[Rfam]
RNA: Flavo-1 RNA
RNA sequence: UUUUAGCCCUGAUAGUAGCGGCAUCCUUUUUCUGGCUUUUUUGCCAGAAAAAGAUAUAGCGAAUAGCAGGAAACAGC
Numbered sequence: 001u002u003u004u005a006g007c008c009c010u011g012a013u014a015g016u017a018g019c020g021g022c023a024u025c026c027u028u029u030u031u032c033u034g035g036c037u038u039u040u041u042u043g044c045c046a047g048a049a050a051a052a053g054a055u056a057u058a059g060c061g062a063a064u065a066g067c068a069g070g071a072a073a074c075a076g077c
Stems, first nucleotide, its partner, number of pairs: 009069003013065002018060002023055003029050008